[Rfam]
RNA sequence: GUCGGGAGGGUGGCUAAUACAAGACCCCUCAUCCGGGGAAAUACGCCACGCCGUACGCACGCUUCCACGGUUUCGAACCUCCCGGCUCCCUUGC
Numbered sequence: 001g002u003c004g005g006g007a008g009g010g011u012g013g014c015u016a017a018u019a020c021a022a023g024a025c026c027c028c029u030c031a032u033c034c035g036g037g038g039a040a041a042u043a044c045g046c047c048a049c050g051c052c053g054u055a056c057g058c059a060c061g062c063u064u065c066c067a068c069g070g071u072u073u074c075g076a077a078c079c080u081c082c083c084g085g086c087u088c089c090c091u092u093g094c
Base pairs, nucleotide, nucleotide: 001086002085003084004083005082006081007080008079009078011048012047013046014045015043016042025038026037027036050071051070052069053068054067